[Rfam]
RNA sequence: UUUUUUCACCAGGGGUGCUUAGAAUCUAAGCUGAGAAAUACCCUUAUAACCUGCACUGGAUAAUGCCUGCGGAGGGAGUGUGAUGCUCAAAGCAU
Numbered sequence: 001u002u003u004u005u006u007c008a009c010c011a012g013g014g015g016u017g018c019u020u021a022g023a024a025u026c027u028a029a030g031c032u033g034a035g036a037a038a039u040a041c042c043c044u045u046a047u048a049a050c051c052u053g054c055a056c057u058g059g060a061u062a063a064u065g066c067c068u069g070c071g072g073a074g075g076g077a078g079u080g081u082g083a084u085g086c087u088c089a090a091a092g093c094a095u
Stems, first nucleotide, its partner, number of pairs: 006083004011044004016038001017031005050075003056069001058067002
RNA: TPP riboswitch aptamer (THI element)
Organism: Legionella septentrionalis